[Rfam]
RNA sequence: AUAAGCAAUUAUCUCCGAGCCUUUCUUCCUAAAGGUCUGACCUAUGGAAAAAGGCCACUAUCUCAAGAUAGUCAAGGUUUGCGACGGAAACGGGCAAGCCCCCACUUUUGGAAAGGAGGUUAAUUUGGCGCCAA
Numbered sequence: 001a002u003a004a005g006c007a008a009u010u011a012u013c014u015c016c017g018a019g020c021c022u023u024u025c026u027u028c029c030u031a032a033a034g035g036u037c038u039g040a041c042c043u044a045u046g047g048a049a050a051a052a053g054g055c056c057a058c059u060a061u062c063u064c065a066a067g068a069u070a071g072u073c074a075a076g077g078u079u080u081g082c083g084a085c086g087g088a089a090a091c092g093g094g095c096a097a098g099c100c101c102c103c104a105c106u107u108u109u110g111g112a113a114a115g116g117a118g119g120u121u122a123a124u125u126u127g128g129c130g131c132c133a134a
Base pairs, nucleotide, nucleotide: 011120012119013118014117015116016115019055020054021053022052023051024050027048028047029046033043034042035041036040057072058071059070060069061068076100077099078098079097080096081095082094085092086091101111102110
RNA: Molybdenum/Tungsten riboswitch aptamer (Moco RNA motif)